Shown here is a 336-nucleotide RNA sequence, a member of the family "Alphaproteobacteria transfer-messenger RNA". Its family is annotated with RNA catabolic process in the Gene Ontology. It is annotated as a non-coding RNA gene. A search with the family's covariance model found it, with a score of 269 bits.
RNA sequence: ACCCUUGAAAAACAAACAUAAAAUGUCCAUUUUAUGAAAGCUGAUUCGUCAGCUAUGGCAAUAAACGGCUUAUGAAAUAAGCGUUACGGACCCGGGGGCAGUGCCCGGCGUCUCCACCAUUUUUCUUUUACCUUUGUUAUCAGGGUGAUUUCUAUGGGGACGAAACAGGAUCGACGUGCGUAAUAAAGAUAUGCUUUUUGCUCGGCAUGGUACCACCGUUACCGGACUAAAACUCUAUAAGUGCCAAUGAUAACCAUGAGGUGCUCGCUGUUGCUGCCUAAUACGCAGUGAUAAGCGCGGUUCGGGAGGGCACCGGGCAACAGAAGCCCUCCCACU
Numbered sequence: 001a002c003c004c005u006u007g008a009a010a011a012a013c014a015a016a017c018a019u020a021a022a023a024u025g026u027c028c029a030u031u032u033u034a035u036g037a038a039a040g041c042u043g044a045u046u047c048g049u050c051a052g053c054u055a056u057g058g059c060a061a062u063a064a065a066c067g068g069c070u071u072a073u074g075a076a077a078u079a080a081g082c083g084u085u086a087c088g089g090a091c092c093c094g095g096g097g098g099c100a101g102u103g104c105c106c107g108g109c110g111u112c113u114c115c116a117c118c119a120u121u122u123u124u125c126u127u128u129u130a131c132c133u134u135u136g137u138u139a140u141c142a143g144g145g146u147g148a149u150u151u152c153u154a155u156g157g158g159g160a161c162g163a164a165a166c167a168g169g170a171u172c173g174a175c176g177u178g179c180g181u182a183a184u185a186a187a188g189a190u191a192u193g194c195u196u197u198u199u200g201c202u203c204g205g206c207a208u209g210g211u212a213c214c215a216c217c218g219u220u221a222c223c224g225g226a227c228u229a230a231a232a233c234u235c236u237a238u239a240a241g242u243g244c245c246a247a248u249g250a251u252a253a254c255c256a257u258g259a260g261g262u263g264c265u266c267g268c269u270g271u272u273g274c275u276g277c278c279u280a281a282u283a284c285g286c287a288g289u290g291a292u293a294a295g296c297g298c299g300g301u302u303c304g305g306g307a308g309g310g311c312a313c314c315g316g317g318c319a320a321c322a323g324a325a326g327c328c329c330u331c332c333c334a335c336u
Stems, first nucleotide, its partner, number of pairs: 040053005057202005067195003071191003082180003086177003092108005109162007203218003208229003213225002298315004305332006
Dot-bracket structure: .......................................(((((....)))))...(((((.....(((.(((........(((.(((...(((((.......)))))(((((((........................................)))))))............))))))........))).)))..)))))[[[..(((..((.]]].....)).)))....................................................................[[[[...((((((.]]]]...........))))))....
Annotation
Rfam describes the family as follows. Bacterial tmRNA, also known as 10Sa RNA or SsrA, is named for its dual tRNA and mRNA-like properties. Its role is to liberate the mRNA from a stalled ribosome. To accomplish this part of the tmRNA is used as a reading frame that ends in a translation stop signal.